Rfam assigns this 123-nucleotide sequence from Trifolium medium to the family "U11 spliceosomal RNA". A search with the family's covariance model found it, with a score of 75 bits. The base pairs follow the family's consensus structure, which is taken from published work. The family's RNA type in Rfam is spliceosomal small nuclear RNA.
RNA sequence: ACAAAGGGUCAGUUGGCUAAUUAUGCCACGCUCAUCCUGGUUGGUGAGUGCUGUAUGGCUAUCAAGACAUAUGGCUGACAUAAUUUUUGUGAAAUUAGGGUUGGCUCGCCAAGCCGACCCUUU
Dot-bracket structure: .......(((((.((((.......))))((((((((......))))))))(((((((..........)))))))))))).................((((((((((.....))))))))))..